mir-278 microRNA precursor family: a 73-nucleotide RNA from Patiria miniata.
The source organism's lineage runs through Eukaryota, Eumetazoa, Bilateria, Valvatida and Patiria.
Its family is annotated with RISC complex and miRNA-mediated post-transcriptional gene silencing in the Gene Ontology.
A reference for the family is Stark et al. (2007), "Systematic discovery and characterization of fly microRNAs using 12 Drosophila genomes", Genome Res.
RNA sequence: CGUCUUUUAGAAUGAAAGUUUCGCCAAUCGGCUUCCCUACGACAGAUCGGUGGGACUUUCGUUCGAUUAGAUG
Numbered sequence: 001c002g003u004c005u006u007u008u009a010g011a012a013u014g015a016a017a018g019u020u021u022c023g024c025c026a027a028u029c030g031g032c033u034u035c036c037c038u039a040c041g042a043c044a045g046a047u048c049g050g051u052g053g054g055a056c057u058u059u060c061g062u063u064c065g066a067u068u069a070g071a072u073g
Base pairs, nucleotide, nucleotide: 003071004070005069010064011063012062013061014060015059017057018056019055020054021053022052023051025049027047028046029045